[Rfam]
RNA sequence: GGUCUUGAGGAGCGUUGCGACAGCGAAUCCGCUGCCAGGCUCAAGAUCCUUCCCAUUGGCCCCGCCGGCCGCCGGUUUCCCCCGGAUCGUUGGCGUGUGGGCCCCAAGAACGGCGCUCACGUCCC
Numbered sequence: 001g002g003u004c005u006u007g008a009g010g011a012g013c014g015u016u017g018c019g020a021c022a023g024c025g026a027a028u029c030c031g032c033u034g035c036c037a038g039g040c041u042c043a044a045g046a047u048c049c050u051u052c053c054c055a056u057u058g059g060c061c062c063c064g065c066c067g068g069c070c071g072c073c074g075g076u077u078u079c080c081c082c083c084g085g086a087u088c089g090u091u092g093g094c095g096u097g098u099g100g101g102c103c104c105c106a107a108g109a110a111c112g113g114c115g116c117u118c119a120c121g122u123c124c125c
Stems, first nucleotide, its partner, number of pairs: 002047007021034005
About this RNA: This 125-nucleotide RNA sequence from Pandoraea pnomenusa belongs to the Rfam family "SAH (S-adenosyl-L-homocysteine) riboswitch aptamer". The source organism's lineage runs through Bacteria, Pseudomonadati, Pseudomonadota, Burkholderiaceae and Pandoraea. Pairs were carried over by alignment from the consensus structure, which is taken from published work. Rfam links the family to the GO terms S-adenosylhomocysteine metabolic process and regulation of gene expression.